[Rfam]
Notes
The record is a 102-nucleotide RNA, which matches "c-di-GMP-II-GAG riboswitch aptamer" in Rfam. The sequence is in the family's curated seed alignment. Its Rfam clan is "c-di-GMP_II riboswitch clan".

RNA sequence: CUGACACCGGGACGCGAAGAACCUCGGGCUGCACGACGGUCGCCACGGCAGCGCAGCUGCCUGGUCCGGGGGGAGCGAAUGGCGAGACCGACCCGGCUUCAU
Numbered sequence: 001c002u003g004a005c006a007c008c009g010g011g012a013c014g015c016g017a018a019g020a021a022c023c024u025c026g027g028g029c030u031g032c033a034c035g036a037c038g039g040u041c042g043c044c045a046c047g048g049c050a051g052c053g054c055a056g057c058u059g060c061c062u063g064g065u066c067c068g069g070g071g072g073g074a075g076c077g078a079a080u081g082g083c084g085a086g087a088c089c090g091a092c093c094c095g096g097c098u099u100c101a102u
Base pairs, nucleotide, nucleotide: 002101003100004099007096008095009094010093011092013077014076015075022071023070024069025068026067027066028065029064038089039088040085041084042083043082044081